[Rfam]
A member of the RNA family "SAH (S-adenosyl-L-homocysteine) riboswitch aptamer" from Dactylosporangium vinaceum, 76 nucleotides long.
RNA sequence: GGGGUCGAGAGGCGCUGCGACGGACUUUGUCCGCCACGCUCGACCCAGCAUCAGUCGGCAAGGGCGCCUCCCCCGG
Numbered sequence: 001g002g003g004g005u006c007g008a009g010a011g012g013c014g015c016u017g018c019g020a021c022g023g024a025c026u027u028u029g030u031c032c033g034c035c036a037c038g039c040u041c042g043a044c045c046c047a048g049c050a051u052c053a054g055u056c057g058g059c060a061a062g063g064g065c066g067c068c069u070c071c072c073c074c075g076g
Stems, first nucleotide, its partner, number of pairs: 002046007021033005